[Rfam]
RNA: t44 RNA
Organism: Pseudoalteromonas sp. NC201
RNA sequence: CACUUAUUAAUAUUAACACACACACAUAUCGACACAUACACUUGGGUGCAUGCAGUUAUAAAAACUUCGUGUUGGUGCUAUGGGAUAUGUGGAGGCCUAAC
Numbered sequence: 001c002a003c004u005u006a007u008u009a010a011u012a013u014u015a016a017c018a019c020a021c022a023c024a025c026a027u028a029u030c031g032a033c034a035c036a037u038a039c040a041c042u043u044g045g046g047u048g049c050a051u052g053c054a055g056u057u058a059u060a061a062a063a064a065c066u067u068c069g070u071g072u073u074g075g076u077g078c079u080a081u082g083g084g085a086u087a088u089g090u091g092g093a094g095g096c097c098u099a100a101c
Stems, first nucleotide, its partner, number of pairs: 023091008035082004040076003048072005